[Rfam]
RNA sequence: CACUCUGGAAAGCGGACGCGGCCCGGCCACGUCCCACCGAAGGGGUAAGCCAGGCGACUGGCGAAAGCUCUCAGGUUCCGUGACAGAGGG
Number, nucleotide and partner (000 for none) at each position: 001c090002a000003c088004u087005c086006u085007g084008g000009a000010a000011a000012g000013c000014g034015g033016a032017c031018g000019c000020g000021g000022c000023c000024c000025g000026g000027c000028c000029a000030c000031g017032u016033c015034c014035c000036a076037c075038c074039g072040a071041a000042g000043g070044g069045g068046u000047a000048a000049g062050c061051c000052a000053g000054g000055c000056g000057a000058c000059u000060g000061g050062c049063g000064a000065a000066a000067g000068c045069u044070c043071u040072c039073a000074g038075g037076u036077u000078c000079c000080g000081u000082g000083a000084c007085a006086g005087a004088g003089g000090g001
Background: Rfam assigns this 90-nucleotide sequence from Sphingomonas sp. IBVSS2 to the family "Glycine riboswitch aptamer". Rfam links the family to the GO term glycine biosynthetic process. Taxonomically the source falls in Sphingomonas (Bacteria, Pseudomonadota, Alphaproteobacteria, Sphingomonadaceae).